[Rfam]
RNA: MIR5272 microRNA precursor family
RNA sequence: UUGAAUGUAAAUUGAUUUAUGUUUGGAUAUAUUCACUUAAAAUUGAUUCUUAAGAAUCUAUGUUGUUUGGAUAG
Numbered sequence: 001u002u003g004a005a006u007g008u009a010a011a012u013u014g015a016u017u018u019a020u021g022u023u024u025g026g027a028u029a030u031a032u033u034c035a036c037u038u039a040a041a042a043u044u045g046a047u048u049c050u051u052a053a054g055a056a057u058c059u060a061u062g063u064u065g066u067u068u069g070g071a072u073a074g
Stems, first nucleotide, its partner, number of pairs: 011061002014058005022052001025049004030045002033042001